[Rfam]
RNA sequence: CGCUUAUAGAGAAAGGCCGAGGGAAUAGACCCGUUGAAGCCUUAGCAACCUGUAUUGUUCAAGGUGCUAAAUUCUACCCUACUCCAUGUGGGAAAGAUAAGUU
Numbered sequence: 001c002g003c004u005u006a007u008a009g010a011g012a013a014a015g016g017c018c019g020a021g022g023g024a025a026u027a028g029a030c031c032c033g034u035u036g037a038a039g040c041c042u043u044a045g046c047a048a049c050c051u052g053u054a055u056u057g058u059u060c061a062a063g064g065u066g067c068u069a070a071a072u073u074c075u076a077c078c079c080u081a082c083u084c085c086a087u088g089u090g091g092g093a094a095a096g097a098u099a100a101g102u103u
Stems, first nucleotide, its partner, number of pairs: 002102006013043005021032003026076004044068004049064002051061002054058001072095001077092003081089002
RNA: SAM riboswitch aptamer (S box leader)
Organism: Sphingobacterium sp. HMSC13C05